[Rfam]
RNA sequence: ACGGGCACGGACGCCCGUGGUUCCAAACAGCAACGAUGUUUUAGAGCAAAACUAUUUGCAAAGCUUCAAAACUCGUGGUUUAGUUUUUGACAAGGACGUCAAAAACUAAACCGUU
Numbered sequence: 001a002c003g004g005g006c007a008c009g010g011a012c013g014c015c016c017g018u019g020g021u022u023c024c025a026a027a028c029a030g031c032a033a034c035g036a037u038g039u040u041u042u043a044g045a046g047c048a049a050a051a052c053u054a055u056u057u058g059c060a061a062a063g064c065u066u067c068a069a070a071a072c073u074c075g076u077g078g079u080u081u082a083g084u085u086u087u088u089g090a091c092a093a094g095g096a097c098g099u100c101a102a103a104a105a106c107u108a109a110a111c112c113g114u115u
Base pairs, nucleotide, nucleotide: 001018002017003016004015005014006013034075035074036073038072039071040070041069042068044066045065046064047063078111079110080109081108082107083106084105085104086103087102088101089100090099091098
The family of this 115-nucleotide RNA from Treponema phagedenis is "TD-2 RNA". The organism belongs to Treponema, within Bacteria. The family has 36 seed sequences and 310 matches in Rfam 15.1.